Background: This 87-nucleotide RNA from Scyliorhinus torazame belongs to the Rfam family "Small nucleolar RNA SNORD60".
RNA sequence: AGCUGAUGAUGAGCCUUCUAUUUCUGACAUCUCCAAUGAAAGUGUUGCAUUAAAGCAAUGCUUGAUUACAGUUUGUGGCUGAGGCUU
Numbered sequence: 001a002g003c004u005g006a007u008g009a010u011g012a013g014c015c016u017u018c019u020a021u022u023u024c025u026g027a028c029a030u031c032u033c034c035a036a037u038g039a040a041a042g043u044g045u046u047g048c049a050u051u052a053a054a055g056c057a058a059u060g061c062u063u064g065a066u067u068a069c070a071g072u073u074u075g076u077g078g079c080u081g082a083g084g085c086u087u
Base pairs, nucleotide, nucleotide: 001086002085003084004083042061045058046057047056048055
Pairs were carried over by alignment from the consensus structure, which was predicted with PFOLD.
The organism belongs to Scyliorhinus, within Eukaryota.
Clan: SNORD60 clan.
For this family Rfam cites "Purified box C/D snoRNPs are able to reproduce site-specific 2'-O-methylation of target RNA in vitro" (Galardi et al., Mol Cell Biol, 2002).